Rfam assigns this 74-nucleotide sequence from Trifolium medium to the family "MIR5272 microRNA precursor family". A search with the family's covariance model found it, with a score of 68 bits. Gene Ontology terms of the family: RISC complex and miRNA-mediated post-transcriptional gene silencing.

[Rfam]
RNA sequence: GUUAAGCUAAAUUGAUUUAUGUUUGGAUACACUUAUGUAAAAGUGAUUCUUAUCAAUUCACGUUGUUUGGAUAA
Numbered sequence: 001g002u003u004a005a006g007c008u009a010a011a012u013u014g015a016u017u018u019a020u021g022u023u024u025g026g027a028u029a030c031a032c033u034u035a036u037g038u039a040a041a042a043g044u045g046a047u048u049c050u051u052a053u054c055a056a057u058u059c060a061c062g063u064u065g066u067u068u069g070g071a072u073a074a
Stems, first nucleotide, its partner, number of pairs: 012060001014058004021053002025049004030045005